[Rfam]
RNA sequence: UCGGCUCCGGUUCACGCUCCCGCAAAUCCGCGUCUGCGACCCGGCGCC
Numbered sequence: 001u002c003g004g005c006u007c008c009g010g011u012u013c014a015c016g017c018u019c020c021c022g023c024a025a026a027u028c029c030g031c032g033u034c035u036g037c038g039a040c041c042c043g044g045c046g047c048c
Stems, first nucleotide, its partner, number of pairs: 003048003007044004015038003021032003

This 48-nucleotide RNA from Streptomyces sp. HmicA12 belongs to the Rfam family "L31-Actinobacteria ribosomal protein leader".
Lineage of the source: Bacteria > Bacillati > Actinomycetota > Kitasatosporales > Streptomyces.
It is one of the family's seed sequences.
Pairs were carried over by alignment from the consensus structure, which is taken from published work.
The family's RNA type in Rfam is cis-regulatory leader.
Its Rfam clan is "Ribosomal Protein L31 Leader clan".